Annotation:
A member of the RNA family "MIR812 microRNA precursor family" from Oryza glumipatula, 204 nucleotides long. Rfam links the family to the GO terms miRNA-mediated post-transcriptional gene silencing and RISC complex. Pairs were carried over by alignment from the consensus structure, which was predicted with RNAalifold.
[Rfam]
RNA sequence: AAAAAGACAAACUCUGGGUUUCCGUGUCCAACUUUGACUGUCCGUCUUAUAUGGAAUUUUUCUAUAAUUUAUAUUUUCAUUGUUGUUAGAUGAUAAAACGUGAUUAAUAUUUUAUGCGUGACUUGUCUUUUUAAUUUUUUCAUAAUUUUUCAAAUAAGACGGACGGUCAUACGUUGGACACGGAAACCAGAGUUUGUCUUUUUU
Numbered sequence: 001a002a003a004a005a006g007a008c009a010a011a012c013u014c015u016g017g018g019u020u021u022c023c024g025u026g027u028c029c030a031a032c033u034u035u036g037a038c039u040g041u042c043c044g045u046c047u048u049a050u051a052u053g054g055a056a057u058u059u060u061u062c063u064a065u066a067a068u069u070u071a072u073a074u075u076u077u078c079a080u081u082g083u084u085g086u087u088a089g090a091u092g093a094u095a096a097a098a099c100g101u102g103a104u105u106a107a108u109a110u111u112u113u114a115u116g117c118g119u120g121a122c123u124u125g126u127c128u129u130u131u132u133a134a135u136u137u138u139u140u141c142a143u144a145a146u147u148u149u150u151c152a153a154a155u156a157a158g159a160c161g162g163a164c165g166g167u168c169a170u171a172c173g174u175u176g177g178a179c180a181c182g183g184a185a186a187c188c189a190g191a192g193u194u195u196g197u198c199u200u201u202u203u204u
Stems, first nucleotide, its partner, number of pairs: 027178006033171001035169016
Annotation:
The source organism's lineage runs through Eukaryota, Viridiplantae, Streptophyta, Oryzinae and Oryza.